This 61-nucleotide RNA sequence from Streptomyces cacaoi belongs to the Rfam family "Actino-pnp RNA".
The match comes from Rfam's covariance-model search (65 bits).
Lineage of the source: Bacteria > Actinomycetota > Actinomycetes > Streptomycetaceae > Streptomyces.
The base pairs follow the family's consensus structure, which is taken from published work.
[Rfam]
RNA sequence: GCCGGUCCUCGGUAGUGGCCCCCGGACAGCAGUGUUCCGGGUGCUUCGAUCGAAGACCGGC
Numbered sequence: 001g002c003c004g005g006u007c008c009u010c011g012g013u014a015g016u017g018g019c020c021c022c023c024g025g026a027c028a029g030c031a032g033u034g035u036u037c038c039g040g041g042u043g044c045u046u047c048g049a050u051c052g053a054a055g056a057c058c059g060g061c
Stems, first nucleotide, its partner, number of pairs: 001061007009053005017045003021041006